[Rfam]
RNA sequence: CCUUGUGUGCGACCACAAGUAGCCUACGGUGACAUGCAAACCUAGUAAUGGGUCUGUGUGAAGCUCACCUGACAAAGUACCCCCGCGCAAGCGGUACACCUAACCCGUGAGGGCGGAUGUAGACACUGCCAGCAGAAGGGCGGUAGAGGGG
Numbered sequence: 001c002c003u004u005g006u007g008u009g010c011g012a013c014c015a016c017a018a019g020u021a022g023c024c025u026a027c028g029g030u031g032a033c034a035u036g037c038a039a040a041c042c043u044a045g046u047a048a049u050g051g052g053u054c055u056g057u058g059u060g061a062a063g064c065u066c067a068c069c070u071g072a073c074a075a076a077g078u079a080c081c082c083c084c085g086c087g088c089a090a091g092c093g094g095u096a097c098a099c100c101u102a103a104c105c106c107g108u109g110a111g112g113g114c115g116g117a118u119g120u121a122g123a124c125a126c127u128g129c130c131a132g133c134a135g136a137a138g139g140g141c142g143g144u145a146g147a148g149g150g151g
Stems, first nucleotide, its partner, number of pairs: 002019006028069005033060006040053005083094004095121004105112002125144006
Shown here is a 151-nucleotide RNA sequence from Comamonas testosteroni, a member of the family "Group II catalytic intron D1-D4-7". The organism belongs to Comamonas testosteroni, within Bacteria. About the family: Group II introns are found in rRNA, tRNA and mRNA of organelles in fungi, plants and protists, and also in mRNA in bacteria. The base pairs follow the family's consensus structure.